[Rfam]
RNA sequence: CGACCAGGCCGGGCCCCUCUGGCAGUUCACCCGAACUGUGAUGUCGGACUGGGAGA
Numbered sequence: 001c002g003a004c005c006a007g008g009c010c011g012g013g014c015c016c017c018u019c020u021g022g023c024a025g026u027u028c029a030c031c032c033g034a035a036c037u038g039u040g041a042u043g044u045c046g047g048a049c050u051g052g053g054a055g056a
Base pairs, nucleotide, nucleotide: 006050007049009047010046011045012044022039023038024037025036026035027034028033

The family of this 56-nucleotide sequence from Pseudoxanthobacter soli is "terC RNA". The family has 129 seed sequences and 1,112 matches in Rfam 15.1. The base pairs follow the family's consensus structure, which is taken from published work. By type it is a cis-regulatory element.